The family of this 242-nucleotide RNA sequence from Agrilus planipennis is "R2 RNA element". Rfam links the family to the GO term regulation of reverse transcription. The organism belongs to Agrilus, within Eukaryota. Rfam describes the family as follows. This family represents the 3' UTR region of the R2 retrotransposable element. This family is known to interact with the R2-encoded reverse transcriptase in a reaction known as target primed reverse transcription (TPRT). Rfam classes the family as a cis-regulatory element. It scores 48 bits against the family's covariance model.
RNA sequence: AAAUAAUUAAGCAAUUUAUUAAACAGAGACGACUGCUAGGUAGUGCGAGAUUGUGUAGAUUCUUAUUAAUGUAUGGUACGAAUACAACUUAUCGGCUGAAGAGGACCCUAGUUGGUCCUAAAACGGCCUGAGGUAGAGGGGUUUUAGUCGGUAGGUCCGAGGACUUCUUCCUCGGGAAUCCGACACUACCCAGUCGUACGGACGGCUGGGUGUCUUUUGAAGAUUUCCCCUCUUCCACGAAA
Numbered sequence: 001a002a003a004u005a006a007u008u009a010a011g012c013a014a015u016u017u018a019u020u021a022a023a024c025a026g027a028g029a030c031g032a033c034u035g036c037u038a039g040g041u042a043g044u045g046c047g048a049g050a051u052u053g054u055g056u057a058g059a060u061u062c063u064u065a066u067u068a069a070u071g072u073a074u075g076g077u078a079c080g081a082a083u084a085c086a087a088c089u090u091a092u093c094g095g096c097u098g099a100a101g102a103g104g105a106c107c108c109u110a111g112u113u114g115g116u117c118c119u120a121a122a123a124c125g126g127c128c129u130g131a132g133g134u135a136g137a138g139g140g141g142u143u144u145u146a147g148u149c150g151g152u153a154g155g156u157c158c159g160a161g162g163a164c165u166u167c168u169u170c171c172u173c174g175g176g177a178a179u180c181c182g183a184c185a186c187u188a189c190c191c192a193g194u195c196g197u198a199c200g201g202a203c204g205g206c207u208g209g210g211u212g213u214c215u216u217u218u219g220a221a222g223a224u225u226u227c228c229c230c231u232c233u234u235c236c237a238c239g240a241a242a
Stems, first nucleotide, its partner, number of pairs: 112241002115238002132236002135233002138229003147184005156176008186212001188211005